The family of this 114-nucleotide RNA from Chrysochloris asiatica is "Potassium channel RNA editing signal". The base pairs follow the family's consensus structure, which is taken from published work. A search with the family's covariance model found it, with a score of 105 bits. The organism belongs to Chrysochloris, within Eukaryota. This family represents a group of sequences related to the human potassium channel Kv1.1 hairpin element which directs the efficient modification of an adenosine to inosine by an adenosine deaminase acting on RNA (ADAR). The ADAR modification causes an isoleucine/valine recoding event which lies in the ion-conducting pore of the potassium channel. It is thought that this editing event targets the process of fast inactivation and allows a more rapid recovery from inactivation at negative potentials.

RNA sequence: GUGGGAUACGGGGACAUGAGGCCUGUCACUGUUGGGGGCAAGAUCGUAGGUUCACUGUGCGCCAUUGCUGGGGUCCUCACCAUUGCCCUGCCUGUGCCGGUCAUCGUCUCCAAC
Numbered sequence: 001g002u003g004g005g006a007u008a009c010g011g012g013g014a015c016a017u018g019a020g021g022c023c024u025g026u027c028a029c030u031g032u033u034g035g036g037g038g039c040a041a042g043a044u045c046g047u048a049g050g051u052u053c054a055c056u057g058u059g060c061g062c063c064a065u066u067g068c069u070g071g072g073g074u075c076c077u078c079a080c081c082a083u084u085g086c087c088c089u090g091c092c093u094g095u096g097c098c099g100g101u102c103a104u105c106g107u108c109u110c111c112a113a114c
Base pairs, nucleotide, nucleotide: 001114002113004111005110008107009106010105011104013102014101015100018097021095022094037077038076040074049063050062051061